Record summary
The family of this 127-nucleotide RNA from Limnohabitans sp. B9-3 is "SAH (S-adenosyl-L-homocysteine) riboswitch aptamer". The family's consensus secondary structure is taken from published work. The literature on the family includes a 2008 paper in Mol Cell by Wang et al., "Riboswitches that sense S-adenosylhomocysteine and activate genes involved in coenzyme recycling".

[Rfam]
Nucleotides: 127
Base pairs, nucleotide, nucleotide: 003063004062005061006060007059008058021051022050023049024048025047
Number, partner (000 for none) and nucleotide at each position: 001000g002000g003063g004062u005061u006060c007059g008058a009000g010000g011000a012000g013000c014000g015000c016000u017000g018000c019000a020000g021051c022050c023049u024048g025047u026000a027000u028000c029000c030000g031000u032000c033000a034000u035000u036000u037000c038000u039000g040000g041000u042000g043000g044000u045000g046000c047025a048024u049023a050022g051021g052000u053000g054000a055000g056000g057000c058008u059007c060006g061005a062004a063003c064000a065000c066000a067000c068000a069000g070000g071000u072000u073000c074000u075000u076000u077000u078000g079000c080000u081000g082000c083000u084000u085000u086000g087000u088000g089000c090000g091000g092000c093000g094000u095000u096000g097000g098000g099000c100000c101000u102000c103000a104000c105000g106000u107000u108000u109000c110000c111000a112000a113000c114000c115000g116000c117000g118000c119000u120000c121000a122000c123000c124000c125000a126000c127000u